[Rfam]
Shown here is a 265-nucleotide sequence from Romanomermis culicivorax, a member of the family "RNase MRP". RNase MRP is an enzymatically active ribonucleoprotein with two distinct roles in eukaryotes. In mitochondria it plays a direct role in the initiation of mitochondrial DNA replication. In the nucleus it is involved in precursor rRNA processing, where it cleaves the internal transcribed spacer 1 between 18S and 5.8S rRNAs. The family's RNA type in Rfam is ribozyme. For this family Rfam cites "Secondary structure of RNase MRP RNA as predicted by phylogenetic comparison" (Schmitt et al., FASEB J, 1993).
RNA sequence: GGGUUCAGAGAAGAAAAGCAUUCGCAGUCACAUGAGAGCACUUGUUGGCUCGUUUACUGUGAGGAAAGUCCCUGGAUAUUUUUCGGACAGAAAGUGUCGGAACAUAAUUGUUCUUACCGCAUUUCGCCGUUUUUCGACUUUCGUCGGGCCAAGAUUUCUAACUUGGGAUGUGAAGUUGGAAGGAGCCGCGGCUUCCGAAAUGCGGCUGCUCGAAGCACAGUAACGCUUCGAAUUCGAACAGCACAGGGCUCAUUCUUUCUGAACC
Numbered sequence: 001g002g003g004u005u006c007a008g009a010g011a012a013g014a015a016a017a018g019c020a021u022u023c024g025c026a027g028u029c030a031c032a033u034g035a036g037a038g039c040a041c042u043u044g045u046u047g048g049c050u051c052g053u054u055u056a057c058u059g060u061g062a063g064g065a066a067a068g069u070c071c072c073u074g075g076a077u078a079u080u081u082u083u084c085g086g087a088c089a090g091a092a093a094g095u096g097u098c099g100g101a102a103c104a105u106a107a108u109u110g111u112u113c114u115u116a117c118c119g120c121a122u123u124u125c126g127c128c129g130u131u132u133u134u135c136g137a138c139u140u141u142c143g144u145c146g147g148g149c150c151a152a153g154a155u156u157u158c159u160a161a162c163u164u165g166g167g168a169u170g171u172g173a174a175g176u177u178g179g180a181a182g183g184a185g186c187c188g189c190g191g192c193u194u195c196c197g198a199a200a201u202g203c204g205g206c207u208g209c210u211c212g213a214a215g216c217a218c219a220g221u222a223a224c225g226c227u228u229c230g231a232a233u234u235c236g237a238a239c240a241g242c243a244c245a246g247g248g249c250u251c252a253u254u255c256u257u258u259c260u261g262a263a264c265c
Stems, first nucleotide, its partner, number of pairs: 002265010014228001017227003022062007036051004067250002070248004086098004099114006116210001118208001124205003128202003134198003147187003176180001230235001